[Rfam]
RNA sequence: GGGUCCGCAGUUCACCCUGUCGUCGCCGAUGCGAUUCAUGCAUCACGCUAAACCUGCCU
Numbered sequence: 001g002g003g004u005c006c007g008c009a010g011u012u013c014a015c016c017c018u019g020u021c022g023u024c025g026c027c028g029a030u031g032c033g034a035u036u037c038a039u040g041c042a043u044c045a046c047g048c049u050a051a052a053c054c055u056g057c058c059u
Stems, first nucleotide, its partner, number of pairs: 001017004028044006
Rfam assigns this 59-nucleotide RNA from Jannaschia sp. CCS1 to the family "COG3860 RNA". It is one of the family's seed sequences. NCBI's taxonomy places the organism under Bacteria, Pseudomonadati, Alphaproteobacteria, Roseobacteraceae, Jannaschia.